Rfam assigns this 121-nucleotide RNA from Xenorhabdus szentirmaii to the family "Fumarate/nitrate reductase regulator sRNA".
NCBI's taxonomy places the organism under Bacteria, Pseudomonadati, Pseudomonadota, Gammaproteobacteria, Xenorhabdus szentirmaii.

RNA sequence: GCAGGUGAAUGCAACGUUGGGCGAUGAACGUUGUGCUCCAUAAUUGUAGUUUUUCUCAUCUUGAGUUUCACAGAAAAUAAUUGACCUUCAUUAUGCCGAUGUUAAUUUAGCAUCGGCUAUU
Numbered sequence: 001g002c003a004g005g006u007g008a009a010u011g012c013a014a015c016g017u018u019g020g021g022c023g024a025u026g027a028a029c030g031u032u033g034u035g036c037u038c039c040a041u042a043a044u045u046g047u048a049g050u051u052u053u054u055c056u057c058a059u060c061u062u063g064a065g066u067u068u069c070a071c072a073g074a075a076a077a078u079a080a081u082u083g084a085c086c087u088u089c090a091u092u093a094u095g096c097c098g099a100u101g102u103u104a105a106u107u108u109a110g111c112a113u114c115g116g117c118u119a120u121u
Stems, first nucleotide, its partner, number of pairs: 001047004007038002010035009063087001065085003095117008
The literature on the family includes a 2010 paper in Mol Microbiol by Durand and Storz, "Reprogramming of anaerobic metabolism by the FnrS small RNA".